Histone 3' UTR stem-loop: a 46-nucleotide RNA sequence from Xenopus laevis. A search with the family's covariance model found it, with a score of 35 bits. Rfam 15.1 lists 44,596 matches to the family in 976 species. From the family's description: The mRNAs of metazoan histone genes lack a poly-A tail. 3' end processing occurs at a site between a highly conserved stem-loop (modelled by this family) and a purine rich region around 20 nts downstream (the histone downstream element, or HDE).
[Rfam]
RNA sequence: ACAAAGGCUCUUUUCAGAGCCACUCACACCUGCUAAAAAGGCUGAG
Numbered sequence: 001a002c003a004a005a006g007g008c009u010c011u012u013u014u015c016a017g018a019g020c021c022a023c024u025c026a027c028a029c030c031u032g033c034u035a036a037a038a039a040g041g042c043u044g045a046g
Stems, first nucleotide, its partner, number of pairs: 006021006